This 167-nucleotide sequence from Kitasatospora cheerisanensis belongs to the Rfam family "c-di-AMP riboswitch aptamer (ydaO/yuaA leader)". Gene Ontology terms of the family: regulation of gene expression and cyclic-di-AMP binding.

RNA sequence: CCGGGUCGACCACCACAACCCGGGCAGGGGCGGGGGAACCACGUACGUCGCCGUCCCCCACGGCUAGGGGUGAAGCCGUCCACGCCGGUCCGACCGGAGUGCGGCGGCCGGACCUCCCUCCCGGUCCGAACCCGACAGCUCACCUCGCAGGCGUGCGGAGAGGAUCG
Numbered sequence: 001c002c003g004g005g006u007c008g009a010c011c012a013c014c015a016c017a018a019c020c021c022g023g024g025c026a027g028g029g030g031c032g033g034g035g036g037a038a039c040c041a042c043g044u045a046c047g048u049c050g051c052c053g054u055c056c057c058c059c060a061c062g063g064c065u066a067g068g069g070g071u072g073a074a075g076c077c078g079u080c081c082a083c084g085c086c087g088g089u090c091c092g093a094c095c096g097g098a099g100u101g102c103g104g105c106g107g108c109c110g111g112a113c114c115u116c117c118c119u120c121c122c123g124g125u126c127c128g129a130a131c132c133c134g135a136c137a138g139c140u141c142a143c144c145u146c147g148c149a150g151g152c153g154u155g156c157g158g159a160g161a162g163g164a165u166c167g
Stems, first nucleotide, its partner, number of pairs: 011153001013151002019029003030148006040067001068133003076107004110127004

Source information:
The pairing is the family consensus, mapped onto this sequence.